Source information:
The record is a 374-nucleotide RNA from Terasakiella magnetica, which matches "Alphaproteobacteria transfer-messenger RNA" in Rfam. Bacterial tmRNA, also known as 10Sa RNA or SsrA, is named for its dual tRNA and mRNA-like properties. Its Rfam clan is "tRNA clan". For this family Rfam cites "Phylogenetic analysis of tmRNA secondary structure" (Williams and Bartel, RNA, 1996). It scores 242 bits against the family's covariance model.
RNA sequence: UUCCUUGACCUUUGUCUGUUUCAUGCGUAUCUCUUAGGUGUCCGCUUAGCGGCGGACUACGGCGCUAGAGGCGUACAUGGAAUAAGCUGACUGGACCCGGGGGCGGUACCCGGCGCCUCCACCAUAAGCUGAUCAGGUUUAUAAUGAUCAGUUUGUGAUGGGGGCGAAAUAGGAUCGACAGCGGUAGUAAAGAUGUAGUGUUGCGCUCGGUGAGCUACCACCGUAUCGGUGCAAAACUUUACAAAUGCCAACGACAAUCGUAUGGCUCCGGUUGCAGCUGCUGCGUAACGCAGUCGCUUGACCAAAUUCAAUUCCUAUGAAGGUGAGUCUUUAUAGGUGGGGUCCGGGGGUACCUAGCAACAGAGACCCCCACU
Number, nucleotide and partner (000 for none) at each position: 001u000002u000003c000004c000005u000006u000007g000008a000009c000010c000011u000012u000013u000014g000015u000016c000017u000018g000019u000020u000021u000022c000023a000024u000025g000026c000027g000028u000029a000030u000031c000032u000033c000034u000035u000036a000037g000038g000039u000040g057041u056042c055043c054044g053045c052046u051047u000048a000049g000050c000051g046052g045053c044054g043055g042056a041057c040058u000059a000060c000061g207062g206063c205064g204065c203066u000067a000068g000069a000070g000071g000072c200073g199074u198075a196076c195077a194078u193079g000080g000081a000082a000083u000084a000085a000086g000087c184088u183089g182090a000091c181092u180093g179094g000095a000096c000097c113098c112099g111100g110101g109102g000103g000104c000105g000106g000107u000108a000109c101110c100111c099112g098113g097114c166115g165116c164117c163118u162119c161120c160121a000122c000123c000124a000125u000126a000127a000128g000129c000130u000131g000132a000133u000134c000135a000136g000137g000138u000139u000140u000141a000142u000143a000144a000145u000146g000147a000148u000149c000150a000151g000152u000153u000154u000155g000156u000157g000158a000159u000160g120161g119162g118163g117164g116165c115166g114167a000168a000169a000170u000171a000172g000173g000174a000175u000176c000177g000178a000179c093180a092181g091182c089183g088184g087185u000186a000187g000188u000189a000190a000191a000192g000193a078194u077195g076196u075197a000198g074199u073200g072201u000202u000203g065204c064205g063206c062207u061208c223209g222210g221211u220212g000213a000214g232215c231216u000217a230218c229219c228220a211221c210222c209223g208224u000225a000226u000227c000228g219229g218230u217231g215232c214233a000234a000235a000236a000237c000238u000239u000240u000241a000242c000243a000244a000245a000246u000247g000248c000249c000250a000251a000252c000253g000254a000255c000256a000257a000258u000259c000260g000261u000262a000263u000264g000265g000266c000267u000268c000269c000270g000271g000272u000273u000274g000275c000276a000277g000278c000279u000280g000281c000282u000283g000284c000285g000286u000287a000288a000289c000290g000291c000292a000293g000294u000295c000296g000297c000298u000299u000300g000301a000302c000303c000304a000305a000306a000307u000308u000309c000310a000311a000312u000313u000314c000315c000316u000317a000318u000319g000320a000321a000322g000323g000324u000325g000326a000327g000328u000329c000330u000331u000332u000333a000334u000335a000336g000337g000338u000339g000340g355341g354342g353343u352344c000345c000346g371347g370348g369349g368350g367351u366352a343353c342354c341355u340356a000357g000358c000359a000360a000361c000362a000363g000364a000365g000366a351367c350368c349369c348370c347371c346372a000373c000374u000